[Rfam]
RNA: Pseudomonas sRNA CrcZ
RNA sequence: ACAACAAAAAUAAAAAAGCUUGCUAACAACAACAAUAAAACUUGUGCAUACCUCAACAACAAAAACAAAAGAGGCAGGCCACGUAAGCUGAUUUUUUUGGAGAGGUAGAGAUCGCGGAGUCGAUCAGCUGUCGAGAACAAUAAAAACUGCCUAAGCAGUCGACCGACAGACAGGACACGCGUCCUCUACAGCGUCCAAAGCAAUCCGUUUAUGUUCGUGAGACUGUUUUAGUCAUCACACCGUGCACCGCGCGGCUAUGGGUAAAAACAAUAACAAAUGCCCAUGAGAAAAAUAAUCAUAAAGCACACACCUUCUAUGGCAUGGGGAGCUUCGUUCUCCCCUGUUGCUUUGACUUAAGCAACAUCAUCAUGCACCAU
Numbered sequence: 001a002c003a004a005c006a007a008a009a010a011u012a013a014a015a016a017a018g019c020u021u022g023c024u025a026a027c028a029a030c031a032a033c034a035a036u037a038a039a040a041c042u043u044g045u046g047c048a049u050a051c052c053u054c055a056a057c058a059a060c061a062a063a064a065a066c067a068a069a070a071g072a073g074g075c076a077g078g079c080c081a082c083g084u085a086a087g088c089u090g091a092u093u094u095u096u097u098u099g100g101a102g103a104g105g106u107a108g109a110g111a112u113c114g115c116g117g118a119g120u121c122g123a124u125c126a127g128c129u130g131u132c133g134a135g136a137a138c139a140a141u142a143a144a145a146a147c148u149g150c151c152u153a154a155g156c157a158g159u160c161g162a163c164c165g166a167c168a169g170a171c172a173g174g175a176c177a178c179g180c181g182u183c184c185u186c187u188a189c190a191g192c193g194u195c196c197a198a199a200g201c202a203a204u205c206c207g208u209u210u211a212u213g214u215u216c217g218u219g220a221g222a223c224u225g226u227u228u229u230a231g232u233c234a235u236c237a238c239a240c241c242g243u244g245c246a247c248c249g250c251g252c253g254g255c256u257a258u259g260g261g262u263a264a265a266a267a268c269a270a271u272a273a274c275a276a277a278u279g280c281c282c283a284u285g286a287g288a289a290a291a292a293u294a295a296u297c298a299u300a301a302a303g304c305a306c307a308c309a310c311c312u313u314c315u316a317u318g319g320c321a322u323g324g325g326g327a328g329c330u331u332c333g334u335u336c337u338c339c340c341c342u343g344u345u346g347c348u349u350u351g352a353c354u355u356a357a358g359c360a361a362c363a364u365c366a367u368c369a370u371g372c373a374c375c376a377u
Stems, first nucleotide, its partner, number of pairs: 046079002049076001051074002095200005110192001128173005146159005221233004254359003257354001258283004301349004321344001323341006